[Rfam]
Rfam assigns this 97-nucleotide RNA sequence from Camellia sinensis to the family "MIR397 microRNA precursor family". The family's consensus secondary structure was predicted with WAR. Rfam links the family to the GO terms miRNA-mediated post-transcriptional gene silencing and RISC complex.
RNA sequence: CUUAAAAACAUAAUUGAGUGCAGCGUUGAUGAAUCAUCCCAUUUCAUUUACAAAAAAAUUGUGGUUUCAUCCGCGCUGCACUCAAUCAGUGUUUUUA
Numbered sequence: 001c002u003u004a005a006a007a008a009c010a011u012a013a014u015u016g017a018g019u020g021c022a023g024c025g026u027u028g029a030u031g032a033a034u035c036a037u038c039c040c041a042u043u044u045c046a047u048u049u050a051c052a053a054a055a056a057a058a059u060u061g062u063g064g065u066u067u068c069a070u071c072c073g074c075g076c077u078g079c080a081c082u083c084a085a086u087c088a089g090u091g092u093u094u095u096u097a
Stems, first nucleotide, its partner, number of pairs: 006094005011088001013086014028071001030069003
NCBI's taxonomy places the organism under Eukaryota, Embryophyta, Spermatophyta, Magnoliopsida, Camellia.